[Rfam]
RNA sequence: GGAGAAGGGCCGUCGACUAAAAACGCGACGUCCUGUCGCAACGUCGACACUAGCACGUUCAGUGCG
Numbered sequence: 001g002g003a004g005a006a007g008g009g010c011c012g013u014c015g016a017c018u019a020a021a022a023a024c025g026c027g028a029c030g031u032c033c034u035g036u037c038g039c040a041a042c043g044u045c046g047a048c049a050c051u052a053g054c055a056c057g058u059u060c061a062g063u064g065c066g
Stems, first nucleotide, its partner, number of pairs: 012048006025039005053065004